[Rfam]
RNA sequence: AGAGUAGGUGAGGUAGUUGCAGGCUUGUUUGAUUGACAAGUUUGAGGAAAGUCCGGACUCCCGAAAGACCAAACUUGCUGGGUAACGCCCAGUACAGGCGACUGUGAGGAUAGUGCCACAGAAACAUACCGCCUUUUUUUCAGUCAACAGUAAAAAAAAACUGAUAAUUGGAAAAGGUAAGGGUGCAAAGGUGGGGUAAGAGCCCACCAGCAGUAUCGAGAGGUACUGGCUCGGUAAACCCCGGUUGGGAGCAAGGUCGAAGGAACAAUGGUUGGUCUUUUUCCAGUUCCGUUUUAGGUGAACCGCUAGAGAUGUUUGGUAACAGCCAUCCCAGAUAGAUAACUACCCCCAAUAAGACGUAGUAUACUAUGUCUUUAACUGGGAACAAAAUCCGGCUUAUUUUCCUACUCUCCUA
Numbered sequence: 001a002g003a004g005u006a007g008g009u010g011a012g013g014u015a016g017u018u019g020c021a022g023g024c025u026u027g028u029u030u031g032a033u034u035g036a037c038a039a040g041u042u043u044g045a046g047g048a049a050a051g052u053c054c055g056g057a058c059u060c061c062c063g064a065a066a067g068a069c070c071a072a073a074c075u076u077g078c079u080g081g082g083u084a085a086c087g088c089c090c091a092g093u094a095c096a097g098g099c100g101a102c103u104g105u106g107a108g109g110a111u112a113g114u115g116c117c118a119c120a121g122a123a124a125c126a127u128a129c130c131g132c133c134u135u136u137u138u139u140u141c142a143g144u145c146a147a148c149a150g151u152a153a154a155a156a157a158a159a160a161c162u163g164a165u166a167a168u169u170g171g172a173a174a175a176g177g178u179a180a181g182g183g184u185g186c187a188a189a190g191g192u193g194g195g196g197u198a199a200g201a202g203c204c205c206a207c208c209a210g211c212a213g214u215a216u217c218g219a220g221a222g223g224u225a226c227u228g229g230c231u232c233g234g235u236a237a238a239c240c241c242c243g244g245u246u247g248g249g250a251g252c253a254a255g256g257u258c259g260a261a262g263g264a265a266c267a268a269u270g271g272u273u274g275g276u277c278u279u280u281u282u283c284c285a286g287u288u289c290c291g292u293u294u295u296a297g298g299u300g301a302a303c304c305g306c307u308a309g310a311g312a313u314g315u316u317u318g319g320u321a322a323c324a325g326c327c328a329u330c331c332c333a334g335a336u337a338g339a340u341a342a343c344u345a346c347c348c349c350c351a352a353u354a355a356g357a358c359g360u361a362g363u364a365u366a367c368u369a370u371g372u373c374u375u376u377a378a379c380u381g382g383g384a385a386c387a388a389a390a391u392c393c394g395g396c397u398u399a400u401u402u403u404c405c406u407a408c409u410c411u412c413c414u415a
Stems, first nucleotide, its partner, number of pairs: 001411008010402001011400001012347007020044009049398003053395005058251004067283002072246003076243002078092005093107001094105004108241002113239002115235003129182002131178009190208006210230001211228007255304003265295001267293004274289002277286002311330004316325003
Notes
Rfam assigns this 415-nucleotide sequence from Stanieria cyanosphaera to the family "Bacterial RNase P class A". The family's RNA type in Rfam is ribozyme. It scores 272 bits against the family's covariance model. Pairs were carried over by alignment from the consensus structure, which is taken from published work. The source organism's lineage runs through Bacteria, Cyanophyceae, Dermocarpellaceae, Stanieria and Stanieria cyanosphaera.